[Rfam]
The family of this 137-nucleotide RNA from Cyanobacterium stanieri is "Guanidine-I riboswitch aptamer".
This family represents a conserved RNA structure found upstream of the ykkC and yxkD genes in Bacillus subtilis and related genes in other bacteria. The function of this family is unclear although it has been suggested that it may function to switch on efflux pumps and detoxification systems in response to harmful environmental molecules.

RNA sequence: AAAGAAGGUUUCUAGGGUUCCGAUAUAUAAAAAUAUAUGACUGGUCCGAGAGAAACAGGCUGAAACCGUGGGGAAUUUGUUUACAAAAAUCACCCUGAUACACUUUAGCUACACGGAGGGAGAAAAGCCCGGGAGAA
Numbered sequence: 001a002a003a004g005a006a007g008g009u010u011u012c013u014a015g016g017g018u019u020c021c022g023a024u025a026u027a028u029a030a031a032a033a034u035a036u037a038u039g040a041c042u043g044g045u046c047c048g049a050g051a052g053a054a055a056c057a058g059g060c061u062g063a064a065a066c067c068g069u070g071g072g073g074a075a076u077u078u079g080u081u082u083a084c085a086a087a088a089a090u091c092a093c094c095c096u097g098a099u100a101c102a103c104u105u106u107a108g109c110u111a112c113a114c115g116g117a118g119g120g121a122g123a124a125a126a127g128c129c130c131g132g133g134a135g136a137a
Stems, first nucleotide, its partner, number of pairs: 008056005015047002020044002022041001023038006058110007112132001114135001118130003
Dot-bracket structure: .......(((((..((...(((((((((....))))))..).)).))....))))).(((((((.......................................))))))).(.[...(((.......))).)..]..
Notes:
Taxonomically the source falls in Cyanobacterium stanieri (Bacteria, Bacillati, Oscillatoriophycideae, Chroococcales). The match comes from Rfam's covariance-model search (84 bits).